[Rfam]
RNA sequence: GGACACAACUCUGGAGAGUCCCGUAUGGGCGCCGAAGGUGCAAGGAAUAAAAAUUCCAAUCUCUCAGGCAAAAGGACAGAGGAUAGCAU
Numbered sequence: 001g002g003a004c005a006c007a008a009c010u011c012u013g014g015a016g017a018g019u020c021c022c023g024u025a026u027g028g029g030c031g032c033c034g035a036a037g038g039u040g041c042a043a044g045g046a047a048u049a050a051a052a053a054u055u056c057c058a059a060u061c062u063c064u065c066a067g068g069c070a071a072a073a074g075g076a077c078a079g080a081g082g083a084u085a086g087c088a089u
Base pairs, nucleotide, nucleotide: 009081010080011079012078013077020029021028022027031069032068033067034065035064038063040061044056045055
Shown here is an 89-nucleotide sequence from Megasphaera sp. UPII 135-E, a member of the family "Glycine riboswitch aptamer". It scores 61 bits against the family's covariance model.